[Rfam]
RNA: Small nucleolar RNA SNORD77
Organism: Castor canadensis
RNA sequence: GUACUAUGAUGGUUGCAUAGUUCAGCAGAUUAAGUCAUGAAUACUCGAUUUAUCUGUUGUAUCU
Number, nucleotide and partner (000 for none) at each position: 001g062002u061003a060004c059005u000006a038007u037008g036009a035010u034011g000012g000013u028014u027015g026016c025017a000018u000019a000020g000021u000022u000023c000024a000025g016026c015027a014028g013029a000030u000031u000032a000033a000034g010035u009036c008037a007038u006039g000040a000041a000042u000043a000044c000045u000046c000047g000048a000049u000050u000051u000052a000053u000054c000055u000056g000057u000058u000059g004060u003061a002062u001063c000064u000